[Rfam]
RNA sequence: AGCUCAAUGAUUACACGUCUUUCACAGGCAAUAUACGCUAUUCUCAUUGGUAUAUUACCAACAGGAUGAUACCAUAUAAUGUAUAUGAGAGCU
Numbered sequence: 001a002g003c004u005c006a007a008u009g010a011u012u013a014c015a016c017g018u019c020u021u022u023c024a025c026a027g028g029c030a031a032u033a034u035a036c037g038c039u040a041u042u043c044u045c046a047u048u049g050g051u052a053u054a055u056u057a058c059c060a061a062c063a064g065g066a067u068g069a070u071a072c073c074a075u076a077u078a079a080u081g082u083a084u085a086u087g088a089g090a091g092c093u
Stems, first nucleotide, its partner, number of pairs: 001093005

The family of this 93-nucleotide sequence from Papaver somniferum is "Small nucleolar RNA U54". A search with the family's covariance model found it, with a score of 45 bits. The family has 21 seed sequences and 614 matches in Rfam 15.1. Its Rfam clan is "U54 clan". By type it is a C/D-box small nucleolar RNA. The family's consensus secondary structure was predicted with PFOLD. Its family is annotated with RNA processing and nucleolus in the Gene Ontology.